[Rfam]
Shown here is a 332-nucleotide RNA from Litomosoides sigmodontis, a member of the family "Nuclear RNase P". About the family: Ribonuclease P (RNase P) is a ubiquitous endoribonuclease, found in archaea, bacteria and eukarya as well as chloroplasts and mitochondria. Its family is annotated with tRNA processing, ribonuclease P activity and ribonuclease P complex in the Gene Ontology.
RNA sequence: GUGGUGAUAAGACGGCAAAAGGAGUUACACACGGGUAUUUGGUUACCCAUUGUCAUCACUCCUGGGAAGGUCUGAGAUUAGGUCCCGGCCCGAUCUGGGUGGUCUGCAUCCUCUAGCGGAGGAACGACGCAAACCGUCGUGGUGCCGUACCAGAAACAUCACUCGGUACCGUCGUCCUGAAGUACAAGAGGGUUUCUCUCCGUCGUUAGGGGGGAGACUUGAUACGAUUGUGGUGACGGUACGGAGUUUGAACCACGGUACCGGUACCAGCUGUGCUGAGUGCGAUUGUCCACACGUUCAUGUGAACUCAAUUCAGACUACUCUCUCGCCAC
Numbered sequence: 001g002u003g004g005u006g007a008u009a010a011g012a013c014g015g016c017a018a019a020a021g022g023a024g025u026u027a028c029a030c031a032c033g034g035g036u037a038u039u040u041g042g043u044u045a046c047c048c049a050u051u052g053u054c055a056u057c058a059c060u061c062c063u064g065g066g067a068a069g070g071u072c073u074g075a076g077a078u079u080a081g082g083u084c085c086c087g088g089c090c091c092g093a094u095c096u097g098g099g100u101g102g103u104c105u106g107c108a109u110c111c112u113c114u115a116g117c118g119g120a121g122g123a124a125c126g127a128c129g130c131a132a133a134c135c136g137u138c139g140u141g142g143u144g145c146c147g148u149a150c151c152a153g154a155a156a157c158a159u160c161a162c163u164c165g166g167u168a169c170c171g172u173c174g175u176c177c178u179g180a181a182g183u184a185c186a187a188g189a190g191g192g193u194u195u196c197u198c199u200c201c202g203u204c205g206u207u208a209g210g211g212g213g214g215a216g217a218c219u220u221g222a223u224a225c226g227a228u229u230g231u232g233g234u235g236a237c238g239g240u241a242c243g244g245a246g247u248u249u250g251a252a253c254c255a256c257g258g259u260a261c262c263g264g265u266a267c268c269a270g271c272u273g274u275g276c277u278g279a280g281u282g283c284g285a286u287u288g289u290c291c292a293c294a295c296g297u298u299c300a301u302g303u304g305a306a307c308u309c310a311a312u313u314c315a316g317a318c319u320a321c322u323c324u325c326u327c328g329c330c331a332c
Base pairs, nucleotide, nucleotide: 001332002331003330004329007326009324014291015290018287020063021062022061023060024059033048034047035046036045037044072316073315074314075313076312082267083266109123110122111121112120113119124140125139126138127137128136129135142261143260144259145258146257147256148255162246163245164244293302